A member of the RNA family "Group II catalytic intron D1-D4-6" from Mediterraneibacter catenae, 234 nucleotides long. The match comes from Rfam's covariance-model search (80 bits). For this family Rfam cites "The ins and outs of group II introns" (Bonen and Vogel, Trends Genet, 2001). The base pairs follow the family's consensus structure. The organism belongs to Mediterraneibacter, within Bacteria.

RNA sequence: GGAAUCCAGUCUGGUAAGGCCUAGCAAGUCGCCAAUACCGAGUCUUUGGAGCGCCAAAGGCUAACAAUGGUGUUUAAGCGUAGGACAGGGAACAGGAACGUCGUAAUGCGAAAGCGUGAAGUGAUUGAGCUUCGUUAGAGUUAUCGAUUGUGUGGGGGCUGGCACCUCCUUGGGUCACCAAUAAGGAGUAGUCGUUAAAGCGAGACUAUGAAAACGCACCGGAGUCCUAGAGCA
Numbered sequence: 001g002g003a004a005u006c007c008a009g010u011c012u013g014g015u016a017a018g019g020c021c022u023a024g025c026a027a028g029u030c031g032c033c034a035a036u037a038c039c040g041a042g043u044c045u046u047u048g049g050a051g052c053g054c055c056a057a058a059g060g061c062u063a064a065c066a067a068u069g070g071u072g073u074u075u076a077a078g079c080g081u082a083g084g085a086c087a088g089g090g091a092a093c094a095g096g097a098a099c100g101u102c103g104u105a106a107u108g109c110g111a112a113a114g115c116g117u118g119a120a121g122u123g124a125u126u127g128a129g130c131u132u133c134g135u136u137a138g139a140g141u142u143a144u145c146g147a148u149u150g151u152g153u154g155g156g157g158g159c160u161g162g163c164a165c166c167u168c169c170u171u172g173g174g175u176c177a178c179c180a181a182u183a184a185g186g187a188g189u190a191g192u193c194g195u196u197a198a199a200g201c202g203a204g205a206c207u208a209u210g211a212a213a214a215c216g217c218a219c220c221g222g223a224g225u226c227c228u229a230g231a232g233c234a
Base pairs, nucleotide, nucleotide: 012034013033014032018030019029020028022203024201025200036091038089039088042086043085044084046082047080048079049075050074051073052072053071054070055069056068059065127226129225130224131223132222133221134220150219151218152217153216154215156179157178188209189208190207191206192205193204